This 112-nucleotide sequence from Hibiscus trionum belongs to the Rfam family "mir-172 microRNA precursor family". The source organism's lineage runs through Eukaryota, Tracheophyta, Magnoliopsida, Gunneridae and Hibiscus. On this family, see Jones-Rhoades and Bartel, Mol Cell 2004: "Computational Identification of Plant MicroRNAs and Their Targets, Including a Stress-Induced miRNA". Its family is annotated with RISC complex and miRNA-mediated post-transcriptional gene silencing in the Gene Ontology. A search with the family's covariance model found it, with a score of 85 bits. About the family: mir-172 has been experimentally verified in Arabidopsis thaliana.
[Rfam]
RNA sequence: UUGUUUGCAAAUGCAGCAUCAGCAAGAUUCACAUGCAACGUCAUACAUAUGUGUGUGUGUAUAUAUAUAAGUUUUGGCCUGAGAAUCUUGAUGAUGCUGCAUUGGCAAUGAA
Numbered sequence: 001u002u003g004u005u006u007g008c009a010a011a012u013g014c015a016g017c018a019u020c021a022g023c024a025a026g027a028u029u030c031a032c033a034u035g036c037a038a039c040g041u042c043a044u045a046c047a048u049a050u051g052u053g054u055g056u057g058u059g060u061a062u063a064u065a066u067a068u069a070a071g072u073u074u075u076g077g078c079c080u081g082a083g084a085a086u087c088u089u090g091a092u093g094a095u096g097c098u099g100c101a102u103u104g105g106c107a108a109u110g111a112a
Stems, first nucleotide, its partner, number of pairs: 010103012023090008032081002